[Rfam]
RNA sequence: UAAUUCACUUAUUGUAAGUCGCUCUGGAUAAGAGCAUCUGCUAAAUAACCAAAA
Number, nucleotide and partner (000 for none) at each position: 001u000002a000003a000004u000005u000006c000007a000008c000009u000010u000011a000012u000013u043014g041015u040016a039017a000018g000019u000020c000021g035022c034023u033024c032025u031026g000027g000028a000029u000030a000031a025032g024033a023034g022035c021036a000037u000038c000039u016040g015041c014042u000043a013044a000045a000046u000047a000048a000049c000050c000051a000052a000053a000054a000
Shown here is a 54-nucleotide sequence from Esox lucius, a member of the family "UnaL2 LINE 3' element". The eel long interspersed element (LINE) UnaL2 and its partner short interspersed element (SINE) share a conserved 3' tail containing a stem-loop that is critical for their retrotransposition. Presumably, the first step of retrotransposition is the recognition of their 3' tails by UnaL2-encoded reverse transcriptase. The solution structure of a 17-nucleotide RNA derived from the 3' tail of UnaL2 was determined by NMR. It scores 60 bits against the family's covariance model. Taxonomically the source falls in Esox (Eukaryota, Chordata, Vertebrata, Teleostomi).